[Rfam]
RNA: c-di-GMP-I-GGC riboswitch aptamer
Organism: Candidatus Vecturithrix granuli
RNA sequence: CACGAUACUGCCAAACCAUUCGCGAGGGUGGGACGGAAAGCUACGGGUCUUCUGCAACACAGAAGAUCGCCGGGUUGCCAAAG
Numbered sequence: 001c002a003c004g005a006u007a008c009u010g011c012c013a014a015a016c017c018a019u020u021c022g023c024g025a026g027g028g029u030g031g032g033a034c035g036g037a038a039a040g041c042u043a044c045g046g047g048u049c050u051u052c053u054g055c056a057a058c059a060c061a062g063a064a065g066a067u068c069g070c071c072g073g074g075u076u077g078c079c080a081a082a083g
Stems, first nucleotide, its partner, number of pairs: 001083001004079001011036002016031006034069001039076004044072003047067006